[Rfam]
RNA sequence: CUGGGGGAGGCCGUUAAACCGUUACCAUUACUGAGUUUAGUAAUGGUAAGGGUUCCAUGGCCCCUACCCAC
Numbered sequence: 001c002u003g004g005g006g007g008a009g010g011c012c013g014u015u016a017a018a019c020c021g022u023u024a025c026c027a028u029u030a031c032u033g034a035g036u037u038u039a040g041u042a043a044u045g046g047u048a049a050g051g052g053u054u055c056c057a058u059g060g061c062c063c064c065u066a067c068c069c070a071c
Base pairs, nucleotide, nucleotide: 007064009062011060012059013058017054018053019052020051022049023048024047025046026045027044028043029042030041031040032039033038

Rfam assigns this 71-nucleotide sequence from Sphaeramia orbicularis to the family "mir-451 microRNA precursor family". The family's consensus secondary structure was predicted with RNAalifold.